[Rfam]
RNA: Burkholderia RNA 7 (anti-hemB)
Organism: Methyloversatilis universalis
RNA sequence: UCACCCGCUUCACCUCCCUGAGCGGGUGCCUACAAGCGAGGCGUUUCUUACCCACGGCGAUAUCCCCUUGAGCCGUGGGUUUCUUUUU
Numbered sequence: 001u002c003a004c005c006c007g008c009u010u011c012a013c014c015u016c017c018c019u020g021a022g023c024g025g026g027u028g029c030c031u032a033c034a035a036g037c038g039a040g041g042c043g044u045u046u047c048u049u050a051c052c053c054a055c056g057g058c059g060a061u062a063u064c065c066c067c068u069u070g071a072g073c074c075g076u077g078g079g080u081u082u083c084u085u086u087u088u
Stems, first nucleotide, its partner, number of pairs: 004026006028042004050080008